RNA: mir-544 microRNA precursor family
Organism: Physeter macrocephalus
RNA sequence: AUCACCUGGGGAUCUUGUUAAAUCGCAGAUUCUGAUUCAGGAGGUCUGGGGUGGGGCCCAAGAUUCUGCAUUUCUAACAAGCUCCCUGGUGAUGCCAG
Numbered sequence: 001a002u003c004a005c006c007u008g009g010g011g012a013u014c015u016u017g018u019u020a021a022a023u024c025g026c027a028g029a030u031u032c033u034g035a036u037u038c039a040g041g042a043g044g045u046c047u048g049g050g051g052u053g054g055g056g057c058c059c060a061a062g063a064u065u066c067u068g069c070a071u072u073u074c075u076a077a078c079a080a081g082c083u084c085c086c087u088g089g090u091g092a093u094g095c096c097a098g
Stems, first nucleotide, its partner, number of pairs: 003091003009085003014081007021073002025069005031063003